[Rfam]
RNA: traJ-II RNA
RNA sequence: GGGCAAGACAGGUGAAGUAGGCCCACCCGCAAGCGGAUCGGCCUUCUUCACUUCCCCCACAUUCGCGCUACGCGCUCAAGGGGGUGUCUUGCUCUGCGAGGCG
Numbered sequence: 001g002g003g004c005a006a007g008a009c010a011g012g013u014g015a016a017g018u019a020g021g022c023c024c025a026c027c028c029g030c031a032a033g034c035g036g037a038u039c040g041g042c043c044u045u046c047u048u049c050a051c052u053u054c055c056c057c058c059a060c061a062u063u064c065g066c067g068c069u070a071c072g073c074g075c076u077c078a079a080g081g082g083g084g085u086g087u088c089u090u091g092c093u094c095u096g097c098g099a100g101g102c103g
Stems, first nucleotide, its partner, number of pairs: 001094009012051006019044003025038001027036003055084004065075004